RNA: radC RNA
RNA sequence: AGAUCGGGCAAGCGCUGUCGUUGACAGCAACCCAGGUAGCCAGAACCUUUAAGGCUACGCCACACCAUGGUGGUUCCCCCAAAGUGCGAUUAGCGUCCGGCGGCUCGCACGGUCACAGCGAUGUGAUGGAUGC
Numbered sequence: 001a002g003a004u005c006g007g008g009c010a011a012g013c014g015c016u017g018u019c020g021u022u023g024a025c026a027g028c029a030a031c032c033c034a035g036g037u038a039g040c041c042a043g044a045a046c047c048u049u050u051a052a053g054g055c056u057a058c059g060c061c062a063c064a065c066c067a068u069g070g071u072g073g074u075u076c077c078c079c080c081a082a083a084g085u086g087c088g089a090u091u092a093g094c095g096u097c098c099g100g101c102g103g104c105u106c107g108c109a110c111g112g113u114c115a116c117a118g119c120g121a122u123g124u125g126a127u128g129g130a131u132g133c
Stems, first nucleotide, its partner, number of pairs: 014028006036058006044075004059071004106132002112127006